[Rfam]
RNA sequence: GUAACACUCAAAAGAUGGCGGCACUUUCACCAGAGAGCAGAAAGUGCCCCCACAGUUUGAGUGCC
Numbered sequence: 001g002u003a004a005c006a007c008u009c010a011a012a013a014g015a016u017g018g019c020g021g022c023a024c025u026u027u028c029a030c031c032a033g034a035g036a037g038c039a040g041a042a043a044g045u046g047c048c049c050c051c052a053c054a055g056u057u058u059g060a061g062u063g064c065c
Stems, first nucleotide, its partner, number of pairs: 005063008016052003020048009
mir-290 microRNA precursor family: a 65-nucleotide RNA from Homo sapiens. Its Rfam clan is "mir-290 clan". NCBI's taxonomy places the organism under Eukaryota, Teleostomi, Eutheria, Haplorrhini, Homo. Rfam links the family to the GO terms miRNA-mediated post-transcriptional gene silencing and RISC complex. The base pairs follow the family's consensus structure, which was predicted with RNAalifold. Rfam's curators put it in the seed alignment.